Small nucleolar RNA SNORD71: an 83-nucleotide RNA sequence from Acipenser ruthenus.
Taxonomically the source falls in Acipenser (Eukaryota, Opisthokonta, Eumetazoa, Acipenserinae).
About the family: snoRNA HBII-239 belongs to the family of C/D snoRNAs.It is the human orthologue of the mouse MBII-239 described and is predicted to guide 2'O-ribose methylation of 5.8S rRNA on residue U14.
RNA sequence: GAGCUGUUUGGUGAUGAAAGCUUUGAGUGAUCCAUCGACUGAUUCUGUAAAAGCUGUUGAUACUAAAGCACUAAAAACAGCUA
Numbered sequence: 001g002a003g004c005u006g007u008u009u010g011g012u013g014a015u016g017a018a019a020g021c022u023u024u025g026a027g028u029g030a031u032c033c034a035u036c037g038a039c040u041g042a043u044u045c046u047g048u049a050a051a052a053g054c055u056g057u058u059g060a061u062a063c064u065a066a067a068g069c070a071c072u073a074a075a076a077a078c079a080g081c082u083a
Stems, first nucleotide, its partner, number of pairs: 002082007010071001013032003017028001035060005043052002

The family's consensus secondary structure was predicted with RNAalifold.